[Rfam]
RNA sequence: GACUUAUAUUCUGUAGCAAGGUUAACCGAAUAGGGGAGCCGUAGGGAAACCGAGUCUUAAAAGGGCGAAUGAGUUGCAGGGUAUAGACCCGAAACCGAGUGAUCUAUCCAUGAGCAGGUUGAAAGUGCCGUAACAGGCAUCGGAGGACCGAACCCACUGUCGUUGAAAAGCCAGGGGAUGACUUGUGGAUAGGGGUGAAAGGCUAAUCAAACUCGGUGAUAGCUGGUU
Numbered sequence: 001g002a003c004u005u006a007u008a009u010u011c012u013g014u015a016g017c018a019a020g021g022u023u024a025a026c027c028g029a030a031u032a033g034g035g036g037a038g039c040c041g042u043a044g045g046g047a048a049a050c051c052g053a054g055u056c057u058u059a060a061a062a063g064g065g066c067g068a069a070u071g072a073g074u075u076g077c078a079g080g081g082u083a084u085a086g087a088c089c090c091g092a093a094a095c096c097g098a099g100u101g102a103u104c105u106a107u108c109c110a111u112g113a114g115c116a117g118g119u120u121g122a123a124a125g126u127g128c129c130g131u132a133a134c135a136g137g138c139a140u141c142g143g144a145g146g147a148c149c150g151a152a153c154c155c156a157c158u159g160u161c162g163u164u165g166a167a168a169a170g171c172c173a174g175g176g177g178a179u180g181a182c183u184u185g186u187g188g189a190u191a192g193g194g195g196u197g198a199a200a201g202g203c204u205a206a207u208c209a210a211a212c213u214c215g216g217u218g219a220u221a222g223c224u225g226g227u228u
Stems, first nucleotide, its partner, number of pairs: 005085013020040004026034002044051002054066004088226002091223001095216006104192011115180001117149004125140005153177003157174003161170001194204003
Rfam assigns this 228-nucleotide part of an RNA from Lwoffella lincolnii to the family "Bacterial large subunit ribosomal RNA".
For this family Rfam cites "Crystal structure of the ribosome at 5.5 A resolution" (Yusupov et al., Science, 2001).
The source organism's lineage runs through Bacteria, Pseudomonadota, Moraxellales, Moraxellaceae and Lwoffella.